[Rfam]
Source information
Rfam assigns this 89-nucleotide sequence from Armadillidium nasatum to the family "mir-1684 microRNA precursor family". Its family is annotated with RISC complex and miRNA-mediated post-transcriptional gene silencing in the Gene Ontology.
RNA sequence: GCUUUCGAAGGGAUAGCCACCCUUCCUCUUUCAGGCUCUAGCUCUAAACUAGAGCCUGAAAGAGGAAGGGUGGCUAUCCCUUCGAAAGC
Numbered sequence: 001g002c003u004u005u006c007g008a009a010g011g012g013a014u015a016g017c018c019a020c021c022c023u024u025c026c027u028c029u030u031u032c033a034g035g036c037u038c039u040a041g042c043u044c045u046a047a048a049c050u051a052g053a054g055c056c057u058g059a060a061a062g063a064g065g066a067a068g069g070g071u072g073g074c075u076a077u078c079c080c081u082u083c084g085a086a087a088g089c
Base pairs, nucleotide, nucleotide: 002088003087006084007083009081010080011079012078013077014076015075016074017073018072019071020070021069023067024066025065026064027063028062029061030060031059032058034056035055038052039051040050041049